[Rfam]
RNA sequence: GGCUGGUCCGAAGGUAGUGAGUUAUCUCAACUGAUUGUUCACAGUCAGUACAGAUUGAACAACUCCUUGUUCUACUCUUUCCCUGUUUCUCACUACUGCACUUGACUAGUCUUAA
Number, nucleotide and partner (000 for none) at each position: 001g111002g110003c109004u108005g107006g106007u105008c104009c000010g103011a102012a000013g000014g099015u098016a094017g093018u092019g091020a090021g089022u000023u000024a000025u000026c000027u000028c000029a000030a000031c000032u000033g000034a000035u000036u000037g000038u000039u000040c000041a000042c000043a000044g076045u000046c000047a073048g072049u000050a000051c000052a000053g000054a000055u000056u000057g000058a000059a000060c000061a000062a000063c000064u000065c000066c000067u000068u000069g000070u000071u000072c048073u047074a000075c000076u044077c000078u000079u000080u000081c000082c000083c000084u000085g000086u000087u000088u000089c021090u020091c019092a018093c017094u016095a000096c000097u000098g015099c014100a000101c000102u011103u010104g008105a007106c006107u005108a004109g003110u002111c001112u000113u000114a000115a000
Overview
This 115-nucleotide RNA from Cavia porcellus belongs to the Rfam family "Y RNA". Y RNAs are components of the Ro ribonucleoprotein particle (Ro RNP), in association with Ro60 and La proteins. The Y RNAs and Ro60 and La proteins are well conserved, but the function of the Ro RNP is not known. In humans the RNA component can be one of four small RNAs -- hY1, hY3, hY4 and hY5. These small RNAs are predicted to fold into a conserved secondary structure containing three stem structures. It scores 65 bits against the family's covariance model.